[Rfam]
RNA sequence: CCUCCUUUUGUUGGCAUACGGUGGUUCAGUACACGUGUGUAACGGGCAGAGGUAAAGAAAUGCCAGUACUAUGUCUUAGGUGCCAACAUUUUUAUAGUCUGCUGGUUCUUUCCUGAAUCAUUGGAACAAGC
Numbered sequence: 001c002c003u004c005c006u007u008u009u010g011u012u013g014g015c016a017u018a019c020g021g022u023g024g025u026u027c028a029g030u031a032c033a034c035g036u037g038u039g040u041a042a043c044g045g046g047c048a049g050a051g052g053u054a055a056a057g058a059a060a061u062g063c064c065a066g067u068a069c070u071a072u073g074u075c076u077u078a079g080g081u082g083c084c085a086a087c088a089u090u091u092u093u094a095u096a097g098u099c100u101g102c103u104g105g106u107u108c109u110u111u112c113c114u115g116a117a118u119c120a121u122u123g124g125a126a127c128a129a130g131c
Base pairs, nucleotide, nucleotide: 001052002051003050004049015039016038017037018036019035020034021032022031064123065122066121067120083105084104085103087101088100
RNA: Small nucleolar RNA SNORA57